[Rfam]
Nucleotides: 063
Stems, first nucleotide, its partner, number of pairs: 007044002010041002027058002030055007
Number, partner (000 for none) and nucleotide at each position: 001000a002000u003000a004000g005000a006000c007044u008043u009000a010041c011040a012000c013000c014000u015000a016000a017000u018000g019000a020000a021000u022000u023000c024000u025000g026000u027058u028057a029000u030055u031054u032053u033052u034051a035050u036049c037000a038000a039000a040011u041010g042000c043008a044007a045000g046000a047000a048000a049036g050035a051034u052033g053032a054031a055030g056000a057028u058027a059000a060000a061000u062000g063000a
The record is a 63-nucleotide RNA from Olea europaea, which matches "Coronavirus 3' UTR pseudoknot" in Rfam. The match comes from Rfam's covariance-model search (37 bits). The source organism's lineage runs through Eukaryota, Viridiplantae, eudicotyledons, Oleaceae and Olea europaea. Its family is annotated with viral genome replication in the Gene Ontology.